The family of this 138-nucleotide RNA from Camellia sinensis is "small nucleolar RNA snoR137".
NCBI's taxonomy places the organism under Eukaryota, Viridiplantae, Streptophyta, Ericales, Camellia sinensis.
On this family, see Chen and Wu, Nucleic Acids Res 2009: "Mining small RNA sequencing data: a new approach to identify small nucleolar RNAs in Arabidopsis".
The family's consensus secondary structure was predicted with RNAalifold.
Rfam 15.1 lists 808 matches to the family in 221 species.
Rfam classes the family as an H/ACA-box small nucleolar RNA.
[Rfam]
RNA sequence: GUUGCUUUUUUGAAAGGCGAAUGACUAUUCUAAAAGUUGGUCAGUCAUAUCGGGAAGCAUAUAUAAAGAAUGUAUUGCCAGUUUUAAACAACAUAUUGUUCUUCUGUUGCAUUGUGUUACCUGUCACCUGGUAAAUUU
Number, nucleotide and partner (000 for none) at each position: 001g000002u000003u059004g058005c057006u056007u055008u054009u000010u000011u000012g000013a000014a000015a000016g000017g000018c000019g051020a050021a000022u047023g046024a045025c044026u043027a000028u000029u000030c000031u000032a000033a000034a000035a000036g000037u000038u000039g000040g000041u000042c000043a026044g025045u024046c023047a022048u000049a000050u020051c019052g000053g000054g008055a007056a006057g005058c004059a003060u000061a000062u000063a000064u000065a000066a000067a000068g000069a000070a000071u000072g000073u000074a000075u000076u000077g132078c131079c130080a129081g128082u000083u126084u000085u000086a000087a000088a000089c000090a118091a117092c116093a000094u114095a113096u000097u111098g110099u000100u000101c000102u000103u000104c000105u000106g000107u000108u000109g000110c098111a097112u000113u095114g094115u000116g092117u091118u090119a000120c000121c000122u000123g000124u000125c000126a083127c000128c081129u080130g079131g078132u077133a000134a000135a000136u000137u000138u000